RNA sequence: GGCUCCGGUCCGGCUCGCGCUCCCUAUGAACUACCCACGGGGGAGAAAGCACCCCACCAAACCCCACCCUUCCCUCCCGCCGGGCAAACUCACUCCCGCGAGUGAAUAUGCCCGAGUGGACUGGAUUUGGCACCGGUUGCCUGCCUUACGCUCAGCGCGACACAACAACAGACAUGCGACGGCCCCCGCCGGGACUGGCAUCCCAAGCGAGGGCCUGACCACCGAGGAAGAAAGCAGCUUCCCG
Numbered sequence: 001g002g003c004u005c006c007g008g009u010c011c012g013g014c015u016c017g018c019g020c021u022c023c024c025u026a027u028g029a030a031c032u033a034c035c036c037a038c039g040g041g042g043g044a045g046a047a048a049g050c051a052c053c054c055c056a057c058c059a060a061a062c063c064c065c066a067c068c069c070u071u072c073c074c075u076c077c078c079g080c081c082g083g084g085c086a087a088a089c090u091c092a093c094u095c096c097c098g099c100g101a102g103u104g105a106a107u108a109u110g111c112c113c114g115a116g117u118g119g120a121c122u123g124g125a126u127u128u129g130g131c132a133c134c135g136g137u138u139g140c141c142u143g144c145c146u147u148a149c150g151c152u153c154a155g156c157g158c159g160a161c162a163c164a165a166c167a168a169c170a171g172a173c174a175u176g177c178g179a180c181g182g183c184c185c186c187c188g189c190c191g192g193g194a195c196u197g198g199c200a201u202c203c204c205a206a207g208c209g210a211g212g213g214c215c216u217g218a219c220c221a222c223c224g225a226g227g228a229a230g231a232a233a234g235c236a237g238c239u240u241c242c243c244g
Base pairs, nucleotide, nucleotide: 007223008222009221017076019074090105091104092103093102094101095100121155122154123153124152181215182214183213184212185211187209188208189207191204192203193202194201226242227241228240229239230238
RNA: Streptomyces sRNA 4677